[Rfam]
RNA sequence: CCCCAAUUGUGGGGGUUACACUCACGUGUUAAUAGCCUAGUUCUUUGGCCGAACUUGGUGGUUAGUGAAUC
Numbered sequence: 001c002c003c004c005a006a007u008u009g010u011g012g013g014g015g016u017u018a019c020a021c022u023c024a025c026g027u028g029u030u031a032a033u034a035g036c037c038u039a040g041u042u043c044u045u046u047g048g049c050c051g052a053a054c055u056u057g058g059u060g061g062u063u064a065g066u067g068a069a070u071c
Stems, first nucleotide, its partner, number of pairs: 001014005029065005035059003039055005
Dot-bracket structure: (((((....)))))..............(((((.(((.(((((.......))))).))).)))))......